Shown here is a 91-nucleotide RNA sequence from Syntrophomonas zehnderi, a member of the family "c-di-GMP-I riboswitch aptamer".
The organism belongs to Syntrophomonas zehnderi, within Bacteria.
The match comes from Rfam's covariance-model search (66 bits).
The family is grouped with related families in Rfam's "c-di-GMP_I riboswitch clan".

RNA sequence: CGCCGAUAAAGGCAAAAUUGGCUAAAGCCAAUGACGCAAAGCUACAGGGCCUUCCUUAGUUGCAGGACUAAGAUGGCAGCCAGCCGCCGAA
Numbered sequence: 001c002g003c004c005g006a007u008a009a010a011g012g013c014a015a016a017a018u019u020g021g022c023u024a025a026a027g028c029c030a031a032u033g034a035c036g037c038a039a040a041g042c043u044a045c046a047g048g049g050c051c052u053u054c055c056u057u058a059g060u061u062g063c064a065g066g067a068c069u070a071a072g073a074u075g076g077c078a079g080c081c082a083g084c085c086g087c088c089g090a091a
Stems, first nucleotide, its partner, number of pairs: 012037002017032006041084003047081002049077003056071006